[Rfam]
RNA: Small nucleolar RNA SNORA25
Organism: Chelonia mydas
RNA sequence: AGGUCAUUUCAAAGAGGGUUUGCAUGGCUCUGAAACCAGCAGCUCUUAACGCGAUGACCUAAUAUUGAAAUCCUCUGUGGGAUGCCAUGAGCGCUUAGUGUGCUACACGGCCUACUUCUGAGGAGAUAGAUGU
Numbered sequence: 001a002g003g004u005c006a007u008u009u010c011a012a013a014g015a016g017g018g019u020u021u022g023c024a025u026g027g028c029u030c031u032g033a034a035a036c037c038a039g040c041a042g043c044u045c046u047u048a049a050c051g052c053g054a055u056g057a058c059c060u061a062a063u064a065u066u067g068a069a070a071u072c073c074u075c076u077g078u079g080g081g082a083u084g085c086c087a088u089g090a091g092c093g094c095u096u097a098g099u100g101u102g103c104u105a106c107a108c109g110g111c112c113u114a115c116u117u118c119u120g121a122g123g124a125g126a127u128a129g130a131u132g133u
Stems, first nucleotide, its partner, number of pairs: 002059006014047007023039001026037002073125004079119004